[Rfam]
RNA: Mammalian CPEB3 ribozyme
Organism: Alligator mississippiensis
RNA sequence: AUAAAAUCAAAGGUAAGCCAUAGUAGAAGCACUCACAGUCCGGCCCUGUCACAUUCCAACGAAUCUGUGAAUUCUGCU
Numbered sequence: 001a002u003a004a005a006a007u008c009a010a011a012g013g014u015a016a017g018c019c020a021u022a023g024u025a026g027a028a029g030c031a032c033u034c035a036c037a038g039u040c041c042g043g044c045c046c047u048g049u050c051a052c053a054u055u056c057c058a059a060c061g062a063a064u065c066u067g068u069g070a071a072u073u074c075u076g077c078u
Stems, first nucleotide, its partner, number of pairs: 013046001017044003022078007029041001031039001050067002053064004